[Rfam]
Nucleotides: 061
Stems, first nucleotide, its partner, number of pairs: 017045003021041007
Number, partner (000 for none) and nucleotide at each position: 001000u002000g003000c004000g005000a006000c007000a008000c009000c010000c011000a012000u013000c014000a015000a016000a017045g018044g019043a020000g021041u022040a023039g024038u025037u026036c027035u028000c029000c030000a031000u032000u033000c034000g035027g036026g037025a038024g039023c040022u041021a042000g043019u044018u045017u046000a047000c048000u049000a050000u051000a052000u053000u054000c055000c056000g057000a058000a059000u060000u061000c